A member of the RNA family "Small nucleolar RNA SNORD10" from Carassius auratus, 136 nucleotides long. On this family, see Huttenhofer et al., EMBO J 2001: "RNomics: an experimental approach that identifies 201 candidates for novel, small, non-messenger RNAs in mouse". Pairs were carried over by alignment from the consensus structure, which was predicted with WAR. Taxonomically the source falls in Carassius (Eukaryota, Otomorpha, Cypriniformes, Cyprinoidei).
RNA sequence: GUUUUGUGAUGAUCCCCAUGCGUGUCAACUGAUCCCAGACUUCCUGCAGUGCUCAGUGCCUGAUGAGCGUUUUGCUUAUCUGUGCAUCUGACCCUGUCAGGCUCUGUGAACAUGAUCUUGACUUUAGUCUGAAAAC
Numbered sequence: 001g002u003u004u005u006g007u008g009a010u011g012a013u014c015c016c017c018a019u020g021c022g023u024g025u026c027a028a029c030u031g032a033u034c035c036c037a038g039a040c041u042u043c044c045u046g047c048a049g050u051g052c053u054c055a056g057u058g059c060c061u062g063a064u065g066a067g068c069g070u071u072u073u074g075c076u077u078a079u080c081u082g083u084g085c086a087u088c089u090g091a092c093c094c095u096g097u098c099a100g101g102c103u104c105u106g107u108g109a110a111c112a113u114g115a116u117c118u119u120g121a122c123u124u125u126a127g128u129c130u131g132a133a134a135a136c
Stems, first nucleotide, its partner, number of pairs: 001136004043101004047096003
The match comes from Rfam's covariance-model search (79 bits).